Record summary: The family of this 113-nucleotide RNA sequence from Brugia pahangi is "Potassium channel RNA editing signal". Rfam classes the family as a cis-regulatory element. About the family: This family represents a group of sequences related to the human potassium channel Kv1.1 hairpin element which directs the efficient modification of an adenosine to inosine by an adenosine deaminase acting on RNA (ADAR). The ADAR modification causes an isoleucine/valine recoding event which lies in the ion-conducting pore of the potassium channel. It is thought that this editing event targets the process of fast inactivation and allows a more rapid recovery from inactivation at negative potentials. NCBI's taxonomy places the organism under Eukaryota, Ecdysozoa, Nematoda, Spiruromorpha, Brugia. The match comes from Rfam's covariance-model search (57 bits).
[Rfam]
RNA sequence: AUUGGUUAUGGUGAUAUGACACCACAUACAUAUUUGGGACGUAUUAUUGGUUCAGUAUGUGCAGUUGCUGGUGUUUUAACUAUUGCGUUACCUGUUCCUGUAAAUAUUUAAAU
Numbered sequence: 001a002u003u004g005g006u007u008a009u010g011g012u013g014a015u016a017u018g019a020c021a022c023c024a025c026a027u028a029c030a031u032a033u034u035u036g037g038g039a040c041g042u043a044u045u046a047u048u049g050g051u052u053c054a055g056u057a058u059g060u061g062c063a064g065u066u067g068c069u070g071g072u073g074u075u076u077u078a079a080c081u082a083u084u085g086c087g088u089u090a091c092c093u094g095u096u097c098c099u100g101u102a103a104a105u106a107u108u109u110a111a112a113u
Base pairs, nucleotide, nucleotide: 001113002112008107009106010105014101015100016099018097019096021095022094037077038076039075050062051061